t44 RNA: an 88-nucleotide RNA sequence from Reinekea thalattae. This family consists of a number of bacterial RNA genes of between 135 and 170 bases in length. The t44 gene has been identified in several species of enteric bacteria but homologs have also been identified in Pseudomonas and Coxiella species. The t44 gene is found between the map and rpsB genes in all species in the full alignment apart from Shigella flexneri. The match comes from Rfam's covariance-model search (74 bits). Pairs were carried over by alignment from the consensus structure, which was predicted with LocARNA.

[Rfam]
RNA sequence: GUAACUUUAACUAAAUAUCUCACAUACGCCGACACGUAAUUCUGGGUGCCCGAAAGGGGUUGGAUUAUGGGGUGUGUGGAGGCCUAAC
Numbered sequence: 001g002u003a004a005c006u007u008u009a010a011c012u013a014a015a016u017a018u019c020u021c022a023c024a025u026a027c028g029c030c031g032a033c034a035c036g037u038a039a040u041u042c043u044g045g046g047u048g049c050c051c052g053a054a055a056g057g058g059g060u061u062g063g064a065u066u067a068u069g070g071g072g073u074g075u076g077u078g079g080a081g082g083c084c085u086a087a088c
Base pairs, nucleotide, nucleotide: 023078024077025076026075027074028073029072030071035069036068037067038066039065040064041063042062048060049059050058051057